[Rfam]
RNA sequence: AAGACUAUACUUUCAGGGAUCAUUUCUAUAGUUUGUUACUAGAGAAGAUUCUCUGACUGUGUAGGGUACCGAAAACCAUGAGGAAGAGGUGUAGCGUUCUCUCCUGAGCGUGAAGGCGGCUUUCGGUGUUGCUUUUCUGCAACUGCUUAUUGCCAUUGAUGAUCGUUCUGCUUUUCCAUUUUGGGAGAGUUAGAGGGAGAGAACGCAGUCUGAGUGGU
Numbered sequence: 001a002a003g004a005c006u007a008u009a010c011u012u013u014c015a016g017g018g019a020u021c022a023u024u025u026c027u028a029u030a031g032u033u034u035g036u037u038a039c040u041a042g043a044g045a046a047g048a049u050u051c052u053c054u055g056a057c058u059g060u061g062u063a064g065g066g067u068a069c070c071g072a073a074a075a076c077c078a079u080g081a082g083g084a085a086g087a088g089g090u091g092u093a094g095c096g097u098u099c100u101c102u103c104c105u106g107a108g109c110g111u112g113a114a115g116g117c118g119g120c121u122u123u124c125g126g127u128g129u130u131g132c133u134u135u136u137c138u139g140c141a142a143c144u145g146c147u148u149a150u151u152g153c154c155a156u157u158g159a160u161g162a163u164c165g166u167u168c169u170g171c172u173u174u175u176c177c178a179u180u181u182u183g184g185g186a187g188a189g190u191u192a193g194a195g196g197g198a199g200a201g202a203a204c205g206c207a208g209u210c211u212g213a214g215u216g217g218u
Stems, first nucleotide, its partner, number of pairs: 002040002006035002009032003015027004049065002054061001075218005094206012108166003118154003125147003128143005169192002171189007
This 218-nucleotide sequence from Choloepus hoffmanni belongs to the Rfam family "Small nucleolar RNA U3". The family has 87 seed sequences and 19,072 matches in Rfam 15.1. The literature on the family includes a 1997 paper in Nucleic Acids Res by Zwieb, "The uRNA database". Gene Ontology terms of the family: RNA processing and nucleolus. NCBI's taxonomy places the organism under Eukaryota, Sarcopterygii, Amniota, Theria, Choloepus. Small nucleolar RNAs (snoRNAs) are involved in the processing and modification of rRNA in the nucleolus. There are two main classes of snoRNAs: the box C/D class, and the box H/ACA class. U3 snoRNA is a member of the box C/D class. Indeed, the box C/D element is a subset of the six short sequence elements found in all U3 snoRNAs, namely boxes A, A', B, C, C', and D. The U3 snoRNA secondary structure is characterised by a small 5' domain (with boxes A and A'), and a larger 3' domain (with boxes B, C, C', and D), the two domains being linked by a single-stranded hinge.